[Rfam]
RNA: Y RNA
Organism: Cebus imitator
RNA sequence: GGCUGGUCCAAGUGCAGUGUUAUUUACAAGUAAUUGAUUAAAACCAGUUACAGGUUUCUUCGUUUCUUCUGUACUUCCACUCUUUCACUUUGACUAGUCUUAA
Numbered sequence: 001g002g003c004u005g006g007u008c009c010a011a012g013u014g015c016a017g018u019g020u021u022a023u024u025u026a027c028a029a030g031u032a033a034u035u036g037a038u039u040a041a042a043a044c045c046a047g048u049u050a051c052a053g054g055u056u057u058c059u060u061c062g063u064u065u066c067u068u069c070u071g072u073a074c075u076u077c078c079a080c081u082c083u084u085u086c087a088c089u090u091u092g093a094c095u096a097g098u099c100u101u102a103a
Stems, first nucleotide, its partner, number of pairs: 001099008010091002014086001016081004022076001028064002032060002